[Rfam]
The family of this 146-nucleotide RNA from Fukomys damarensis is "Small nucleolar RNA SNORA48". NCBI's taxonomy places the organism under Eukaryota, Glires, Rodentia, Hystricomorpha, Fukomys. Rfam describes the family as follows. The snoRNA ACA 48 has been identified to guide pseudouridylation of the residue U3797 in the 28S rRNA subunit. A search with the family's covariance model found it, with a score of 69 bits. Pairs were carried over by alignment from the consensus structure, which was predicted with RNAalifold.
RNA sequence: AACCCUUGGCAUUGGGCAAAGAGACACCUAAUUGGUGGUGGUGUCCCUUAUAUCAAGUCAGGGGCAGAGCAGAUGGUAGUCGUUUGUUCAUCCUUGCUUGGUGCCUGGAUUGGUGGCCAAAGCUGCUUCAUGCCUAGGGCACAUAA
Numbered sequence: 001a002a003c004c005c006u007u008g009g010c011a012u013u014g015g016g017c018a019a020a021g022a023g024a025c026a027c028c029u030a031a032u033u034g035g036u037g038g039u040g041g042u043g044u045c046c047c048u049u050a051u052a053u054c055a056a057g058u059c060a061g062g063g064g065c066a067g068a069g070c071a072g073a074u075g076g077u078a079g080u081c082g083u084u085u086g087u088u089c090a091u092c093c094u095u096g097c098u099u100g101g102u103g104c105c106u107g108g109a110u111u112g113g114u115g116g117c118c119a120a121a122g123c124u125g126c127u128u129c130a131u132g133c134c135u136a137g138g139g140c141a142c143a144u145a146a
Base pairs, nucleotide, nucleotide: 003064004063005062006061007060008059012056013055014054015053019049020048021047023042025040026039027038028037085141086140087139088138089137100134101133102132106130107129108128111125112124114122